RNA sequence: AAGCUUCACGAAUUCACAGGCCCUCUUAUGGUAUGAACUAAAUACACGAUGAUUUAUGGUGCGUAUUGAGAGCUUACCAUAAGACAAGGCCAUGAAUUCACGAAGCGU
Numbered sequence: 001a002a003g004c005u006u007c008a009c010g011a012a013u014u015c016a017c018a019g020g021c022c023c024u025c026u027u028a029u030g031g032u033a034u035g036a037a038c039u040a041a042a043u044a045c046a047c048g049a050u051g052a053u054u055u056a057u058g059g060u061g062c063g064u065a066u067u068g069a070g071a072g073c074u075u076a077c078c079a080u081a082a083g084a085c086a087a088g089g090c091c092a093u094g095a096a097u098u099c100a101c102g103a104a105g106c107g108u
Stems, first nucleotide, its partner, number of pairs: 003106005010099007019091003024084010035073001038070002041067004047061002
RNA: MIR1428 microRNA precursor family